A member of the RNA family "mir-2 microRNA precursor family" from Culex quinquefasciatus, 72 nucleotides long. The organism belongs to Culex pipiens complex, within Eukaryota. The family's consensus secondary structure was predicted with PFOLD.
RNA sequence: AGACUCACAAAGUGGCAGUGAAAUGGUACUGUGUUUGAUAUCGCAUAUCACAGCCAGCUUUGAUGAGCUGGA
Numbered sequence: 001a002g003a004c005u006c007a008c009a010a011a012g013u014g015g016c017a018g019u020g021a022a023a024u025g026g027u028a029c030u031g032u033g034u035u036u037g038a039u040a041u042c043g044c045a046u047a048u049c050a051c052a053g054c055c056a057g058c059u060u061u062g063a064u065g066a067g068c069u070g071g072a
Stems, first nucleotide, its partner, number of pairs: 005066003008062005013056004018051004024047002